RNA sequence: UGGAUAGUAUCGUGAAUACGAACUAUACUGUAUUAAAUUAAAUAGUUUUACUAAAAAAUUAAUAUGGUUAGUUAUCUGCUCUGAGCCUAUAUUAUGGACCGAGACAGAAGG
Numbered sequence: 001u002g003g004a005u006a007g008u009a010u011c012g013u014g015a016a017u018a019c020g021a022a023c024u025a026u027a028c029u030g031u032a033u034u035a036a037a038u039u040a041a042a043u044a045g046u047u048u049u050a051c052u053a054a055a056a057a058a059u060u061a062a063u064a065u066g067g068u069u070a071g072u073u074a075u076c077u078g079c080u081c082u083g084a085g086c087c088u089a090u091a092u093u094a095u096g097g098a099c100c101g102a103g104a105c106a107g108a109a110g111g
Stems, first nucleotide, its partner, number of pairs: 001030003004026005010021002076107003079103003083099001086097002
RNA: pan motif